A member of the RNA family "Giant, ornate, lake- and Lactobacillales-derived (GOLLD) RNA", 421 nucleotides long.
For this family Rfam cites "Exceptional structured noncoding RNAs revealed by bacterial metagenome analysis" (Weinberg et al., Nature, 2009).
It is one of the family's seed sequences.
RNA sequence: GAAAGUUGAGUGGUAUUUCCUUCUUCAAAAGAGAAGCUAGCCACCUCAGAGCUCAACUUUCAUGACUCUCACUAUGUUGAUUUAUUUAUGAAAAAAUAAACUACAGAAAGGAAAAGUCUCUGAGCGGUUAAACUGAAAGUCACCUAAUUCCUUGAGUAGAAAUACUAACGAGGAAAUUGAUAGGACCCCAAGUCCUUCAGUUUUAACUAAGAAAGUCCUAGUACCUGGGCACGGGUUUAGGGAGUCCGCAAGAUUCCAUAGAGAUUAGUAGUAGUUGAGUAGGGUUAACCGAAACGAGUGAUUGACGUAAACAAUCGGUGAUGACUUGAUACAGAUGGCAACAUUUGUGGAUACGGAAGGAAACCUUAGUACGGUAUAAUCUUCACAAAAGACAGGUCAGUUAAACGAGUAAUCUCAUCGU
Numbered sequence: 001g002a003a004a005g006u007u008g009a010g011u012g013g014u015a016u017u018u019c020c021u022u023c024u025u026c027a028a029a030a031g032a033g034a035a036g037c038u039a040g041c042c043a044c045c046u047c048a049g050a051g052c053u054c055a056a057c058u059u060u061c062a063u064g065a066c067u068c069u070c071a072c073u074a075u076g077u078u079g080a081u082u083u084a085u086u087u088a089u090g091a092a093a094a095a096a097u098a099a100a101c102u103a104c105a106g107a108a109a110g111g112a113a114a115a116g117u118c119u120c121u122g123a124g125c126g127g128u129u130a131a132a133c134u135g136a137a138a139g140u141c142a143c144c145u146a147a148u149u150c151c152u153u154g155a156g157u158a159g160a161a162a163u164a165c166u167a168a169c170g171a172g173g174a175a176a177u178u179g180a181u182a183g184g185a186c187c188c189c190a191a192g193u194c195c196u197u198c199a200g201u202u203u204u205a206a207c208u209a210a211g212a213a214a215g216u217c218c219u220a221g222u223a224c225c226u227g228g229g230c231a232c233g234g235g236u237u238u239a240g241g242g243a244g245u246c247c248g249c250a251a252g253a254u255u256c257c258a259u260a261g262a263g264a265u266u267a268g269u270a271g272u273a274g275u276u277g278a279g280u281a282g283g284g285u286u287a288a289c290c291g292a293a294a295c296g297a298g299u300g301a302u303u304g305a306c307g308u309a310a311a312c313a314a315u316c317g318g319u320g321a322u323g324a325c326u327u328g329a330u331a332c333a334g335a336u337g338g339c340a341a342c343a344u345u346u347g348u349g350g351a352u353a354c355g356g357a358a359g360g361a362a363a364c365c366u367u368a369g370u371a372c373g374g375u376a377u378a379a380u381c382u383u384c385a386c387a388a389a390a391g392a393c394a395g396g397u398c399a400g401u402u403a404a405a406c407g408a409g410u411a412a413u414c415u416c417a418u419c420g421u
Stems, first nucleotide, its partner, number of pairs: 001061009010044005017039001020036006045124007110189002125291007133283002140321005149174006155166003175202005183195004205276005218261003223236004241257003245253002300316005323398003327394002330349008350414003355386001356384005406420003
About this RNA
Pairs were carried over by alignment from the consensus structure, which is taken from published work.